Source information: tRNA: a 74-nucleotide RNA sequence from Anaerotignum neopropionicum. Transfer RNA (tRNA) molecules are approximately 80 nucleotides in length. The base pairs follow the family's consensus structure, which is taken from published work. Taxonomically the source falls in Anaerotignum (Bacteria, Bacillota, Clostridia, Lachnospirales). By type it is a transfer RNA.

RNA sequence: GUGAGUGUAGCUCAGCUGGAUAGAGCGUCUGACUACGGAUCAGAAGGCCGCGUGUUCGAAUCAUGUCACUCACA
Numbered sequence: 001g002u003g004a005g006u007g008u009a010g011c012u013c014a015g016c017u018g019g020a021u022a023g024a025g026c027g028u029c030u031g032a033c034u035a036c037g038g039a040u041c042a043g044a045a046g047g048c049c050g051c052g053u054g055u056u057c058g059a060a061u062c063a064u065g066u067c068a069c070u071c072a073c074a
Stems, first nucleotide, its partner, number of pairs: 001073007010026004028044005050066005
Dot-bracket structure: (((((((..((((.........)))).(((((.......))))).....(((((.......)))))))))))).